[Rfam]
Nucleotides: 105
Stems, first nucleotide, its partner, number of pairs: 002104004012095009022085002025082024050057001
Number, partner (000 for none) and nucleotide at each position: 001000g002104g003103a004102u005101a006000u007000c008000a009000c010000u011000g012095u013094u014093u015092u016091g017090c018089u019088a020087u021000c022085c023084u024000c025082g026081a027080c028079c029078a030077a031076u032075a033074a034073u035072a036071c037070a038069a039068u040067g041066a042065c043064a044063c045062g046061u047060g048059a049000a050057a051000a052000a053000g054000u055000u056000a057050u058000c059048u060047c061046a062045u063044g064043u065042g066041u067040c068039a069038u070037u071036g072035u073034a074033u075032u076031a077030u078029u079028g080027g081026u082025c083000a084023a085022g086000g087020a088019u089018a090017g091016c092015a093014a094013a095012a096000a097000g098000u099000g100000c101005u102004a103003u104002c105000c

This 105-nucleotide RNA sequence from Prunus dulcis belongs to the Rfam family "MIR6274 microRNA precursor family". Rfam links the family to the GO terms RISC complex and miRNA-mediated post-transcriptional gene silencing. NCBI's taxonomy places the organism under Eukaryota, eudicotyledons, fabids, Rosaceae, Prunus.